[Rfam]
RNA sequence: CCCUGACUUCGACCAGACACGAUAUCCUGCUGAGAUAUUGUGCGACCUGCAGUGUCGGUCGACGUCAGCG
Numbered sequence: 001c002c003c004u005g006a007c008u009u010c011g012a013c014c015a016g017a018c019a020c021g022a023u024a025u026c027c028u029g030c031u032g033a034g035a036u037a038u039u040g041u042g043c044g045a046c047c048u049g050c051a052g053u054g055u056c057g058g059u060c061g062a063c064g065u066c067a068g069c070g
Base pairs, nucleotide, nucleotide: 001070003068004067005066006065007064010061011060012059013058014057021039022038023037024036025035026034044056045055046054
RNA: bZIP non canonical Hac1/Xbp1 intron
Organism: Periconia digitata